[Rfam]
RNA sequence: GCUGGGAUUCUAUCAUCCUGUCACCUCUGGAGCUUGGGUGGAGGAGGGCAACUACUGUCUCCAAGUCCUGCCCUUCAUGUGGAGAGCUCACCUCCCUUUAGCUUGCAGACUGCAAGGUUGGCAUAGAGUAGUCUGUGCCAACCUGGCAGGCAAAGAUUGAGGGAAGGCUCAGGCUGGCAACAGAGCAGGCAAAACUCAACACUGCAAGCAGAUGGGAGAGAGUGAGCUUGAAUGGAUGGCAGUGACCUCUGGUGGCAUGAAUGUGCACCACUCCACUCUUU
Numbered sequence: 001g002c003u004g005g006g007a008u009u010c011u012a013u014c015a016u017c018c019u020g021u022c023a024c025c026u027c028u029g030g031a032g033c034u035u036g037g038g039u040g041g042a043g044g045a046g047g048g049c050a051a052c053u054a055c056u057g058u059c060u061c062c063a064a065g066u067c068c069u070g071c072c073c074u075u076c077a078u079g080u081g082g083a084g085a086g087c088u089c090a091c092c093u094c095c096c097u098u099u100a101g102c103u104u105g106c107a108g109a110c111u112g113c114a115a116g117g118u119u120g121g122c123a124u125a126g127a128g129u130a131g132u133c134u135g136u137g138c139c140a141a142c143c144u145g146g147c148a149g150g151c152a153a154a155g156a157u158u159g160a161g162g163g164a165a166g167g168c169u170c171a172g173g174c175u176g177g178c179a180a181c182a183g184a185g186c187a188g189g190c191a192a193a194a195c196u197c198a199a200c201a202c203u204g205c206a207a208g209c210a211g212a213u214g215g216g217a218g219a220g221a222g223u224g225a226g227c228u229u230g231a232a233u234g235g236a237u238g239g240c241a242g243u244g245a246c247c248u249c250u251g252g253u254g255g256c257a258u259g260a261a262u263g264u265g266c267a268c269c270a271c272u273c274c275a276c277u278c279u280u281u
Stems, first nucleotide, its partner, number of pairs: 001033003004019005024030002036278008046269002051264002056257004061252003068242005074236005080230001084229008092218002095216003099212001101209008110149004115144013151155001157199005167190003174183003